[Rfam]
Nucleotides: 136
Base pairs, nucleotide, nucleotide: 003062004061005060006059007058008057010056020051021050022049023048024047026044027043028042075129076126077125078124081119082118084116085115086114087113088112089111093107094106095105
Number, partner (000 for none) and nucleotide at each position: 001000g002000c003062g004061c005060a006059c007058g008057a009000u010056u011000g012000u013000u014000a015000a016000c017000c018000c019000c020051g021050g022049g023048c024047u025000g026044g027043c028042c029000u030000u031000a032000g033000u034000a035000a036000u037000g038000u039000u040000g041000a042028g043027g044026u045000g046000u047024a048023g049022c050021c051020c052000u053000g054000c055000a056010a057008u058007c059006g060005u061004g062003c063000a064000a065000c066000a067000u068000a069000u070000u071000u072000c073000a074000u075129g076126u077125c078124u079000c080000g081119u082118g083000u084116u085115g086114c087113a088112g089111g090000c091000a092000u093107u094106c095105u096000u097000u098000g099000u100000u101000u102000u103000g104000u105095g106094g107093g108000a109000u110000c111089c112088c113087u114086g115085u116084g117000u118082c119081a120000a121000a122000g123000a124078a125077g126076a127000c128000g129075c130000u131000a132000c133000a134000u135000a136000u

Rfam assigns this 136-nucleotide sequence from Ceratopteris richardii to the family "small nucleolar RNA snoR134".
The source organism's lineage runs through Eukaryota, Viridiplantae, Polypodiopsida, Polypodiidae and Ceratopteris.
The match comes from Rfam's covariance-model search (50 bits).